[Rfam]
RNA sequence: UAAUAACACUAUUUUACUAUCCCGGCCAAUAACACGAUGACACGUAAAAAAAUUAUCUCGCGUGUCAUUGUAUUAUUGGUUGGGGAUAAUAAAAAAUGAUAUUC
Numbered sequence: 001u002a003a004u005a006a007c008a009c010u011a012u013u014u015u016a017c018u019a020u021c022c023c024g025g026c027c028a029a030u031a032a033c034a035c036g037a038u039g040a041c042a043c044g045u046a047a048a049a050a051a052a053u054u055a056u057c058u059c060g061c062g063u064g065u066c067a068u069u070g071u072a073u074u075a076u077u078g079g080u081u082g083g084g085g086a087u088a089a090u091a092a093a094a095a096a097u098g099a100u101a102u103u104c
Stems, first nucleotide, its partner, number of pairs: 002103004012094005018088003021084012034071012047058001049056001

Source information:
The record is a 104-nucleotide RNA sequence from Prunus yedoensis, which matches "MIR6274 microRNA precursor family" in Rfam. The base pairs follow the family's consensus structure, which was predicted with RNAalifold. Its family is annotated with miRNA-mediated post-transcriptional gene silencing and RISC complex in the Gene Ontology.